[Rfam]
RNA: Makes More Granules Regulator RNA (mmgR)
Organism: Hephaestia caeni
RNA sequence: AGAGCAGGCCUUUCAGGCAUCCUCUCCUAAAAACUUAUACGGGCUGGCCCUUCGGGGCUGGCCCUUUUUUUGCGCGUAA
Numbered sequence: 001a002g003a004g005c006a007g008g009c010c011u012u013u014c015a016g017g018c019a020u021c022c023u024c025u026c027c028u029a030a031a032a033a034c035u036u037a038u039a040c041g042g043g044c045u046g047g048c049c050c051u052u053c054g055g056g057g058c059u060g061g062c063c064c065u066u067u068u069u070u071u072g073c074g075c076g077u078a079a
Base pairs, nucleotide, nucleotide: 008018009017010016011015041064042063043062044061045060046059047058048057049056